[Rfam]
STnc560 Hfq binding RNA: a 218-nucleotide RNA from Jejuibacter calystegiae. The family's RNA type in Rfam is small RNA. The source organism's lineage runs through Bacteria, Pseudomonadati, Pseudomonadota, Enterobacteriaceae and Jejuibacter.
RNA sequence: CCUUUGUUGACGUUUAAUUCGCUACAGUGGCUUGGCAAUCCAUCGCGACCGGCAGAGGCGCGAUGUAUCAAUACCCAGAAAAUAACGAUCUAUCCAUGCAAGCUUGAGCCGCCAGUCGCUGGCGGUUUUUUUUCGCCUGGCGAUCGCCGAAUAUGAAAAGCCCCUCGAGCAGUGCUGCGAGGGGCUUUUCGGUGAGAGAGCGCGUCGUUCAUUAAUCA
Numbered sequence: 001c002c003u004u005u006g007u008u009g010a011c012g013u014u015u016a017a018u019u020c021g022c023u024a025c026a027g028u029g030g031c032u033u034g035g036c037a038a039u040c041c042a043u044c045g046c047g048a049c050c051g052g053c054a055g056a057g058g059c060g061c062g063a064u065g066u067a068u069c070a071a072u073a074c075c076c077a078g079a080a081a082a083u084a085a086c087g088a089u090c091u092a093u094c095c096a097u098g099c100a101a102g103c104u105u106g107a108g109c110c111g112c113c114a115g116u117c118g119c120u121g122g123c124g125g126u127u128u129u130u131u132u133u134c135g136c137c138u139g140g141c142g143a144u145c146g147c148c149g150a151a152u153a154u155g156a157a158a159a160g161c162c163c164c165u166c167g168a169g170c171a172g173u174g175c176u177g178c179g180a181g182g183g184g185c186u187u188u189u190c191g192g193u194g195a196g197a198g199a200g201c202g203c204g205u206c207g208u209u210c211a212u213u214a215a216u217c218a
Base pairs, nucleotide, nucleotide: 019030020029021028022027038068039067041065042064044062045061046060049058050057108126109125110124111123112122113121114120115119157187159186160185161184162183163182164181165180166179167178169175170174